Shown here is a 102-nucleotide RNA sequence from Rhodanobacter sp. OK091, a member of the family "Fluoride riboswitch aptamer (crcB RNA motif)". The organism belongs to Rhodanobacter, within Bacteria. Its family is annotated with response to fluoride and positive regulation of gene expression in the Gene Ontology. The match comes from Rfam's covariance-model search (35 bits). Pairs were carried over by alignment from the consensus structure, which is taken from published work.
[Rfam]
RNA sequence: GUUGCCAGGGGAGAUGGCAUGCCUCCCGUUUCGGGCAUUCUUCGGCAUCCCGUGACAAACCACCUCUCGUCCGUCGUUGAGGUUGAUGAUGCCUGCACCACC
Numbered sequence: 001g002u003u004g005c006c007a008g009g010g011g012a013g014a015u016g017g018c019a020u021g022c023c024u025c026c027c028g029u030u031u032c033g034g035g036c037a038u039u040c041u042u043c044g045g046c047a048u049c050c051c052g053u054g055a056c057a058a059a060c061c062a063c064c065u066c067u068c069g070u071c072c073g074u075c076g077u078u079g080a081g082g083u084u085g086a087u088g089a090u091g092c093c094u095g096c097a098c099c100a101c102c
Stems, first nucleotide, its partner, number of pairs: 010026004016093005062083004
Dot-bracket structure: .........[[[[..(((((..]]]]...................................((((..............)))).....))))).........